[Rfam]
RNA sequence: AACUCGGCAAAUUGACUCCGUAACUUCGGGAUAAGGAGGGCCUUCUUGCCCCAAAGCAAGAAGGCGGCACAGAAUAG
Dot-bracket structure: ...............((((....(....).....)))).(((((((((........)))))))))(...).......

The record is a 77-nucleotide part of an RNA from Coccomyxa sp. Obi, which matches "Archaeal large subunit ribosomal RNA" in Rfam.
A search with the family's covariance model found it, with a score of 1197 bits.
The source organism's lineage runs through Eukaryota, Viridiplantae, core chlorophytes, Trebouxiophyceae and Coccomyxa.